[Rfam]
RNA: Glycine riboswitch aptamer
Organism: Roseobacter ponti
RNA sequence: CAAGCUGUACCGGGAGAAGACGGGCAACCGUCGCCGAAGGAGCAACCGCCCCGGAAACUCUCAGGUCCAAGGACCGGUACAGCUUA
Numbered sequence: 001c002a003a004g005c006u007g008u009a010c011c012g013g014g015a016g017a018a019g020a021c022g023g024g025c026a027a028c029c030g031u032c033g034c035c036g037a038a039g040g041a042g043c044a045a046c047c048g049c050c051c052c053g054g055a056a057a058c059u060c061u062c063a064g065g066u067c068c069a070a071g072g073a074c075c076g077g078u079a080c081a082g083c084u085u086a
Stems, first nucleotide, its partner, number of pairs: 006081008020031004033066003036062002040060003046054002